[Rfam]
RNA sequence: GUAUUGAUCCGGGCCCCUCUGGCGUUAUCGAUUUUAUCGACGACGCGAUGUCGGAUCAGUCUG
Numbered sequence: 001g002u003a004u005u006g007a008u009c010c011g012g013g014c015c016c017c018u019c020u021g022g023c024g025u026u027a028u029c030g031a032u033u034u035u036a037u038c039g040a041c042g043a044c045g046c047g048a049u050g051u052c053g054g055a056u057c058a059g060u061c062u063g
Base pairs, nucleotide, nucleotide: 006057007056008055009054010053011052012051022046023045024044025043026042
The record is a 63-nucleotide RNA from Lichenifustis flavocetrariae, which matches "terC RNA" in Rfam. Rfam classes the family as a cis-regulatory element. Taxonomically the source falls in Lichenifustis (Bacteria, Pseudomonadati, Alphaproteobacteria, Lichenihabitantaceae).